RNA sequence: CUUCCAUCGGGGAGAGAAGACCCCGUGGAGUUUUACUGCAGCUUGUGCUUGUGGUAUAGUAAGAAUUGCACAGUGUAUCUGGGAGCUAUGCUUAACAUUCCCCGGGAUGUUAAUGAAGCAACGAUGUAACACCAGACUCUUUUUGCAGUACCACUUAUCCAGUGAAGACCGGAGACACGUGCAGGUAGGCAGUUCGGCUGGGGCGGCACCCCUUUGAAAAGAUAUCAAAGGGGCCCAAAGUUGAGUUCAAACGGGGCAGAAAUCCGUUGAAGAGGGCAAAGCCAAAAACUCGACUGAAUGGAUUUCCAAACGCACGGAAUUCAUAGACGAAAGUCUGGCUUAGCGAUCCUUCGUGUGCCCACUAUUGGGGCCCGGAGGUGACAGAAAAAUUACCCCAGGGAUAACAGGCUCGUCGCGGGCGAGAGCUCCUAUCGACCCCGCGGUUUGGUACCUCGAUGUCGGCUUUUCCUAUCCUGGUCCUGCAGCAGGGGCCAAGGGUGAGGCUGCUCGCCUAUUAAAAGGGAACAUGAGCUGGGUUUAGACCGUCGUGAGACAGGUCGGUCUCUGCCUGAUGGAAGCGU
Numbered sequence: 001c002u003u004c005c006a007u008c009g010g011g012g013a014g015a016g017a018a019g020a021c022c023c024c025g026u027g028g029a030g031u032u033u034u035a036c037u038g039c040a041g042c043u044u045g046u047g048c049u050u051g052u053g054g055u056a057u058a059g060u061a062a063g064a065a066u067u068g069c070a071c072a073g074u075g076u077a078u079c080u081g082g083g084a085g086c087u088a089u090g091c092u093u094a095a096c097a098u099u100c101c102c103c104g105g106g107a108u109g110u111u112a113a114u115g116a117a118g119c120a121a122c123g124a125u126g127u128a129a130c131a132c133c134a135g136a137c138u139c140u141u142u143u144u145g146c147a148g149u150a151c152c153a154c155u156u157a158u159c160c161a162g163u164g165a166a167g168a169c170c171g172g173a174g175a176c177a178c179g180u181g182c183a184g185g186u187a188g189g190c191a192g193u194u195c196g197g198c199u200g201g202g203g204c205g206g207c208a209c210c211c212c213u214u215u216g217a218a219a220a221g222a223u224a225u226c227a228a229a230g231g232g233g234c235c236c237a238a239a240g241u242u243g244a245g246u247u248c249a250a251a252c253g254g255g256g257c258a259g260a261a262a263u264c265c266g267u268u269g270a271a272g273a274g275g276g277c278a279a280a281g282c283c284a285a286a287a288a289c290u291c292g293a294c295u296g297a298a299u300g301g302a303u304u305u306c307c308a309a310a311c312g313c314a315c316g317g318a319a320u321u322c323a324u325a326g327a328c329g330a331a332a333g334u335c336u337g338g339c340u341u342a343g344c345g346a347u348c349c350u351u352c353g354u355g356u357g358c359c360c361a362c363u364a365u366u367g368g369g370g371c372c373c374g375g376a377g378g379u380g381a382c383a384g385a386a387a388a389a390u391u392a393c394c395c396c397a398g399g400g401a402u403a404a405c406a407g408g409c410u411c412g413u414c415g416c417g418g419g420c421g422a423g424a425g426c427u428c429c430u431a432u433c434g435a436c437c438c439c440g441c442g443g444u445u446u447g448g449u450a451c452c453u454c455g456a457u458g459u460c461g462g463c464u465u466u467u468c469c470u471a472u473c474c475u476g477g478u479c480c481u482g483c484a485g486c487a488g489g490g491g492c493c494a495a496g497g498g499u500g501a502g503g504c505u506g507c508u509c510g511c512c513u514a515u516u517a518a519a520a521g522g523g524a525a526c527a528u529g530a531g532c533u534g535g536g537u538u539u540a541g542a543c544c545g546u547c548g549u550g551a552g553a554c555a556g557g558u559c560g561g562u563c564u565c566u567g568c569c570u571g572a573u574g575g576a577a578g579c580g581u
Stems, first nucleotide, its partner, number of pairs: 001578008010570003014565002022399002025396001027395002029391005035193004042185007051154007059146007068137001078136005085119003096109005158173003196209001197207003210232006235338002241293006247273002250268006274283002298324009326335001328333001349377005355372001357371004408449003412446001413443007423433002460535001461533004465527001466524005473498002477492005501513004541559004545554003

Description:
A member of the RNA family "Archaeal large subunit ribosomal RNA" from uncultured marine crenarchaeote 'Gulf of Maine', 581 nucleotides of a longer RNA.